[Rfam]
The record is a 136-nucleotide RNA sequence from Virgibacillus indicus, which matches "Glycine riboswitch aptamer" in Rfam. It scores 62 bits against the family's covariance model. Its family is annotated with glycine biosynthetic process in the Gene Ontology. Rfam's curators write: This family represents the bacterial glycine riboswitch. Glycine riboswitches usually consist of two metabolite-binding aptamers domains with similar structures in tandem. The aptamers cooperatively bind glycine to regulate the expression of downstream genes. In Bacillus subtilis, this riboswitch is found upstream of the gcvT operon which controls glycine degradation.
RNA sequence: AUGAAUACAGGGGGAGAGCUUACUGCUAUGCUUUGUUUUUAAAACCAUUAAUCCAGUUUUAGAACAAAUUCUCAGCAGUAACGCCGAAGGAGCAAGCGCAAGCGAAUCUCUCAGGCAAAAAGACUCUUGUAGGACG
Numbered sequence: 001a002u003g004a005a006u007a008c009a010g011g012g013g014g015a016g017a018g019c020u021u022a023c024u025g026c027u028a029u030g031c032u033u034u035g036u037u038u039u040u041a042a043a044a045c046c047a048u049u050a051a052u053c054c055a056g057u058u059u060u061a062g063a064a065c066a067a068a069u070u071c072u073c074a075g076c077a078g079u080a081a082c083g084c085c086g087a088a089g090g091a092g093c094a095a096g097c098g099c100a101a102g103c104g105a106a107u108c109u110c111u112c113a114g115g116c117a118a119a120a121a122g123a124c125u126c127u128u129g130u131a132g133g134a135c136g
Stems, first nucleotide, its partner, number of pairs: 006131008020081008083116003086112002090110003096103002